[Rfam]
RNA sequence: AUUGCGAUUUUGAGGCUAUUGCAGAAGCGUUCAUAGCAUAGCCUCACAGAUUCCAACAAAAUCUGCAAAUUCUGCU
Numbered sequence: 001a002u003u004g005c006g007a008u009u010u011u012g013a014g015g016c017u018a019u020u021g022c023a024g025a026a027g028c029g030u031u032c033a034u035a036g037c038a039u040a041g042c043c044u045c046a047c048a049g050a051u052u053c054c055a056a057c058a059a060a061a062u063c064u065g066c067a068a069a070u071u072c073u074g075c076u
Stems, first nucleotide, its partner, number of pairs: 012045006021075006027039001029037001047065006